[Rfam]
RNA sequence: GGUUUCAUAAAUAAAUGAUUGCGUAUAAUUUCGGGGAUACGGCCCAAGAGUUUCUACCGGACCACCGUAAAUGGUCUGACUACGCAAGCAUGCAGUUAUGAG
Numbered sequence: 001g002g003u004u005u006c007a008u009a010a011a012u013a014a015a016u017g018a019u020u021g022c023g024u025a026u027a028a029u030u031u032c033g034g035g036g037a038u039a040c041g042g043c044c045c046a047a048g049a050g051u052u053u054c055u056a057c058c059g060g061a062c063c064a065c066c067g068u069a070a071a072u073g074g075u076c077u078g079a080c081u082a083c084g085c086a087a088g089c090a091u092g093c094a095g096u097u098a099u100g101a102g
Base pairs, nucleotide, nucleotide: 019087020086021085022084023083024082025081029049030048031047033045034044035043058078059077060076061075062074063073064072
Source information
Rfam assigns this 102-nucleotide RNA sequence from Lentibacillus cibarius to the family "Purine riboswitch aptamer". About the family: Riboswitches are metabolite binding domains within certain messenger RNAs that serve as precision sensors for their corresponding targets. Allosteric rearrangement of mRNA structure is mediated by ligand binding, and this results in modulation of gene expression. A search with the family's covariance model found it, with a score of 82 bits. The source organism's lineage runs through Bacteria, Bacillota, Caryophanales, Bacillaceae and Lentibacillus.